[Rfam]
RNA: Small nucleolar RNA SNORA71
RNA sequence: UCCUGCAUUUGUAAGUGAUCAGGGGGAGCCCAUGCCCUGGUCAUUGGUAGUGCAGGCAGAGGAAAUGUGGAAAAAAUGGUCCUGUGUUGGGAAGGUCCACACCAUGCCUUUCAGUGCUGGGGGCUUUCCUGUA
Numbered sequence: 001u002c003c004u005g006c007a008u009u010u011g012u013a014a015g016u017g018a019u020c021a022g023g024g025g026g027a028g029c030c031c032a033u034g035c036c037c038u039g040g041u042c043a044u045u046g047g048u049a050g051u052g053c054a055g056g057c058a059g060a061g062g063a064a065a066u067g068u069g070g071a072a073a074a075a076a077u078g079g080u081c082c083u084g085u086g087u088u089g090g091g092a093a094g095g096u097c098c099a100c101a102c103c104a105u106g107c108c109u110u111u112c113a114g115u116g117c118u119g120g121g122g123g124c125u126u127u128c129c130u131g132u133a
Base pairs, nucleotide, nucleotide: 002056003055004054005053006052007051008050009049014045015044016043017042018041019040020039021038023037024036025035067130069129070128071127072126073125086115087114088113089112091111092110093109094108095107